[Rfam]
RNA sequence: GAUCCAAUAGUAUGGUAGAAAGAAAUAUAUGACUCUUUCUACCAUACUAUUUAUUUUAUUAGUGUUAUUUAAUGUAUAAAGGUG
Numbered sequence: 001g002a003u004c005c006a007a008u009a010g011u012a013u014g015g016u017a018g019a020a021a022g023a024a025a026u027a028u029a030u031g032a033c034u035c036u037u038u039c040u041a042c043c044a045u046a047c048u049a050u051u052u053a054u055u056u057u058a059u060u061a062g063u064g065u066u067a068u069u070u071a072a073u074g075u076a077u078a079a080a081g082g083u084g
Stems, first nucleotide, its partner, number of pairs: 006051018

Background:
This 84-nucleotide RNA belongs to the Rfam family "Plastid-psbM 3UTR RNA". About the family: Plastid psbM is a non-coding RNA (ncRNA) recognised in plastids. It was found in the three prime untranslated region (3UTR) of psbM gene, its 3UTR location suggests a role in transcript maturation. The family's consensus secondary structure was predicted with LocARNA. The family's RNA type in Rfam is cis-regulatory element. A reference for the family is Richter et al. (2023), "Retrograde signaling in plants: A critical review focusing on the GUN pathway and beyond", Plant Commun. The sequence is in the family's curated seed alignment.